[Rfam]
A member of the RNA family "Giant, ornate, lake- and Lactobacillales-derived (GOLLD) RNA", 458 nucleotides long. For this family Rfam cites "Exceptional structured noncoding RNAs revealed by bacterial metagenome analysis" (Weinberg et al., Nature, 2009). Rfam's curators put it in the seed alignment.

RNA sequence: UUGGUGAGUUGUAUACUGUAUGCCAAAAGCAUAUGGAGCAACUGAGGCAGCUCAUCAAGGUAGGUUGCAACGUAGAUCAAUGGUAGAUCGUCUGUCUCUUAAACAGGAUGUUGCGGGUUCGAUCCCCGCCGUAAUAAAAUGCAAAGACUGCCUCGGUUAUCAGUGAAAAGCAUCUAAUGCUUGACACGCAAGUGAAUCAAGUCCAUUGUAGCUCGCAAGGCGAAAGUGGUUUGUGUUAGAAGUUUCGUAGUUCGCAAGACUUAAUGGCUCGCAAGGUCAACGGAGAAGAAGACACAGAGUAGCUGGUAACGACAAGCCUACUGCCUGGCUUUAAAAACGGCGAUGCUGACAACAGACAGUGAUACCGCAAGGGUCGCUGUGGAUGUCUAGAGAAGCAGUGCUCGCAAGGUGCUGUAUAAUGCUAGAGGUGUUGUUGGCUUAAGGUGUAAUCUCAACCU
Numbered sequence: 001u002u003g004g005u006g007a008g009u010u011g012u013a014u015a016c017u018g019u020a021u022g023c024c025a026a027a028a029g030c031a032u033a034u035g036g037a038g039c040a041a042c043u044g045a046g047g048c049a050g051c052u053c054a055u056c057a058a059g060g061u062a063g064g065u066u067g068c069a070a071c072g073u074a075g076a077u078c079a080a081u082g083g084u085a086g087a088u089c090g091u092c093u094g095u096c097u098c099u100u101a102a103a104c105a106g107g108a109u110g111u112u113g114c115g116g117g118u119u120c121g122a123u124c125c126c127c128g129c130c131g132u133a134a135u136a137a138a139a140u141g142c143a144a145a146g147a148c149u150g151c152c153u154c155g156g157u158u159a160u161c162a163g164u165g166a167a168a169a170g171c172a173u174c175u176a177a178u179g180c181u182u183g184a185c186a187c188g189c190a191a192g193u194g195a196a197u198c199a200a201g202u203c204c205a206u207u208g209u210a211g212c213u214c215g216c217a218a219g220g221c222g223a224a225a226g227u228g229g230u231u232u233g234u235g236u237u238a239g240a241a242g243u244u245u246c247g248u249a250g251u252u253c254g255c256a257a258g259a260c261u262u263a264a265u266g267g268c269u270c271g272c273a274a275g276g277u278c279a280a281c282g283g284a285g286a287a288g289a290a291g292a293c294a295c296a297g298a299g300u301a302g303c304u305g306g307u308a309a310c311g312a313c314a315a316g317c318c319u320a321c322u323g324c325c326u327g328g329c330u331u332u333a334a335a336a337a338c339g340g341c342g343a344u345g346c347u348g349a350c351a352a353c354a355g356a357c358a359g360u361g362a363u364a365c366c367g368c369a370a371g372g373g374u375c376g377c378u379g380u381g382g383a384u385g386u387c388u389a390g391a392g393a394a395g396c397a398g399u400g401c402u403c404g405c406a407a408g409g410u411g412c413u414g415u416a417u418a419a420u421g422c423u424a425g426a427g428g429u430g431u432u433g434u435u436g437g438c439u440u441a442a443g444g445u446g447u448a449a450u451c452u453c454a455a456c457c458u
Base pairs, nucleotide, nucleotide: 001058002057003056004055005054006053007052008042009041010040011039012038016036017035018034019033020032021031022030023029044154045153046152047151048150049149050148141216142215156310157309158308159307160306161305162304163303164302170346171345172344173343174342179202180201181200182199183198184197185194186193187192203229204228205227206226207225211221212220213219232296233295234294235293236292245283246282247281249261250260251259252258265280267278268276269275323341324340325339327338348435349434350433352431353430354429356380357379358378359377360376361375362374382451383450384449387425388424389423390422392420443457444456445455